The family of this 110-nucleotide RNA from Rhizobium sp. RU20A is "EcpR1". The source organism's lineage runs through Bacteria, Pseudomonadati, Alphaproteobacteria, Hyphomicrobiales and Rhizobium. A search with the family's covariance model found it, with a score of 97 bits. Rfam describes the family as follows. Perviously named SmelC291, SmrC10, or Sra33. According to its overproduction phenotype it was renamed Elongated Cell Phenotype RNA1.
[Rfam]
RNA sequence: UUACCCCAUGAUGCUCAGGUCCGCCGCAUCUCCUGGGUCGUGGGGUCGGUCGGUUGGUUCUCCGCAAGAUCGGUUCCUCGUGCCGUAGCUGCGAACCAGCCGACCCCCAU
Numbered sequence: 001u002u003a004c005c006c007c008a009u010g011a012u013g014c015u016c017a018g019g020u021c022c023g024c025c026g027c028a029u030c031u032c033c034u035g036g037g038u039c040g041u042g043g044g045g046u047c048g049g050u051c052g053g054u055u056g057g058u059u060c061u062c063c064g065c066a067a068g069a070u071c072g073g074u075u076c077c078u079c080g081u082g083c084c085g086u087a088g089c090u091g092c093g094a095a096c097c098a099g100c101c102g103a104c105c106c107c108c109a110u
Stems, first nucleotide, its partner, number of pairs: 003046008014037006048105011